[Rfam]
RNA sequence: UAGUUUUGUCCUAAGUUAAACUUGUCUAACUUUGACGAAGUUUAUGGAAAAGUAUAAUAGCAUCUACAAUAUCAAAUAAAUGUACUAUCCAAUUAUAUUUUCAUGGUGUGUCUAAAGAAUCUUGUUUGAUGUUGUAGAUAUUUGUGCAUUUUUCUAUAAACUUGGUCAAAGCUAGAGAAGUUCAACUUAGUACAAAGCUAA
Dot-bracket structure: ....(((((.(((((((.(((((.((....(((((.........((((((((..((..((.(((((((...((((((((..........................................))))))))...))))))).))..))..)))))))).........)))))....)).))))).))))))).))))).....
RNA: MIR1435 microRNA precursor family
Organism: Miscanthus lutarioriparius